RNA sequence: UUAGGGAUACGUGACUGGCGCGUGCGGGUGGGUCACCACCGGGGAGCGAACAGCGGAGGCCGGGCGCCUGGGUCUUCGCG
Number, nucleotide and partner (000 for none) at each position: 001u000002u000003a000004g054005g000006g000007a000008u050009a000010c048011g047012u046013g000014a000015c043016u042017g068018g067019c066020g065021c064022g000023u000024g000025c000026g000027g000028g039029u038030g037031g036032g000033u000034c000035a000036c031037c030038a029039c028040c000041g000042g016043g015044g000045a000046g012047c011048g010049a000050a008051c000052a000053g000054c004055g000056g000057a075058g074059g073060c072061c071062g000063g000064g021065c020066g019067c018068c017069u000070g000071g061072g060073u059074c058075u057076u000077c000078g000079c000080g000

The record is an 80-nucleotide sequence from Sphaerisporangium rubeum, which matches "ZMP/ZTP riboswitch aptamer (pfl RNA motif)" in Rfam. Pairs were carried over by alignment from the consensus structure, which is taken from published work. The organism belongs to Sphaerisporangium, within Bacteria.